Rfam assigns this 70-nucleotide RNA sequence from Oncorhynchus kisutch to the family "mir-10 microRNA precursor family". The literature on the family includes a 2001 paper in Science by Lee and Ambros, "An extensive class of small RNAs in Caenorhabditis elegans". The match comes from Rfam's covariance-model search (62 bits). NCBI's taxonomy places the organism under Eukaryota, Metazoa, Craniata, Salmonidae, Oncorhynchus.

RNA sequence: AGCCACAAACCCGUAGAUCCGAACUUGUGCUAACUGACCUCACAAGCUUGAUUCUAUAGGUCUCUGUCUG
Number, nucleotide and partner (000 for none) at each position: 001a000002g068003c000004c066005a065006c000007a063008a000009a000010c060011c059012c000013g000014u000015a055016g054017a053018u000019c000020c050021g049022a048023a000024c046025u045026u044027g043028u042029g041030c000031u000032a000033a000034c000035u000036g000037a000038c000039c000040u000041c029042a028043c027044a026045a025046g024047c000048u022049u021050g020051a000052u000053u017054c016055u015056a000057u000058a000059g011060g010061u000062c000063u007064c000065u005066g004067u000068c002069u000070g000